[Rfam]
RNA sequence: UGUUUCUUGUCGGGGUGCUCUGAAUAGAGCUGAGAUCGGUUAAACCGGAUCCCGUUGAACCUGAUCGAGUUAAUACUCGCGUAGGGAACAAGAUGAAUUUACCA
Numbered sequence: 001u002g003u004u005u006c007u008u009g010u011c012g013g014g015g016u017g018c019u020c021u022g023a024a025u026a027g028a029g030c031u032g033a034g035a036u037c038g039g040u041u042a043a044a045c046c047g048g049a050u051c052c053c054g055u056u057g058a059a060c061c062u063g064a065u066c067g068a069g070u071u072a073a074u075a076c077u078c079g080c081g082u083a084g085g086g087a088a089c090a091a092g093a094u095g096a097a098u099u100u101a102c103c104a
Base pairs, nucleotide, nucleotide: 006092007091008090009089010088011054012053013052014051016048017030018029019028020027021026037047038046039045040044060085061084062083063082066079067078068077069076

The family of this 104-nucleotide sequence from Pseudomonas sp. C27(2019) is "TPP riboswitch aptamer (THI element)". Taxonomically the source falls in Pseudomonas (Bacteria, Pseudomonadati, Pseudomonadales, Pseudomonadaceae). Rfam describes the family as follows. Vitamin B(1) in its active form thiamin pyrophosphate (TPP) is an essential coenzyme that is synthesised by coupling of pyrimidine and thiazole moieties in bacteria.